[Rfam]
About this RNA
This 178-nucleotide RNA sequence from Equus caballus belongs to the Rfam family "Small nucleolar RNA SNORA81". It is annotated as an H/ACA-box small nucleolar RNA. Rfam links the family to the GO terms nucleolus and RNA processing. The family has 28 seed sequences and 1,161 matches in Rfam 15.1. Rfam's curators put it in the seed alignment. The base pairs follow the family's consensus structure, which was predicted with WAR.

RNA sequence: ACCUUCUUAUUUAGGCUCUGAGCUGAAAUUGCAGAAACUCUAUCAUAUCUUAGUCUUUGUAAUAAAGCUAGCAGAGUAAACACAGGAAGAGAGGCAACUCUCCCAGGUAGUAGAAAAACUGAGAUGAACCUCUUUCUGAAGUGCGGGCUACUUCAUUCUAAGAUUUGGUACAAUAAUA
Numbered sequence: 001a002c003c004u005u006c007u008u009a010u011u012u013a014g015g016c017u018c019u020g021a022g023c024u025g026a027a028a029u030u031g032c033a034g035a036a037a038c039u040c041u042a043u044c045a046u047a048u049c050u051u052a053g054u055c056u057u058u059g060u061a062a063u064a065a066a067g068c069u070a071g072c073a074g075a076g077u078a079a080a081c082a083c084a085g086g087a088a089g090a091g092a093g094g095c096a097a098c099u100c101u102c103c104c105a106g107g108u109a110g111u112a113g114a115a116a117a118a119c120u121g122a123g124a125u126g127a128a129c130c131u132c133u134u135u136c137u138g139a140a141g142u143g144c145g146g147g148c149u150a151c152u153u154c155a156u157u158c159u160a161a162g163a164u165u166u167g168g169u170a171c172a173a174u175a176a177u178a
Stems, first nucleotide, its partner, number of pairs: 018076002022072004029065003034057002037054003042048002099172001101170001103168005121149001125145002128142001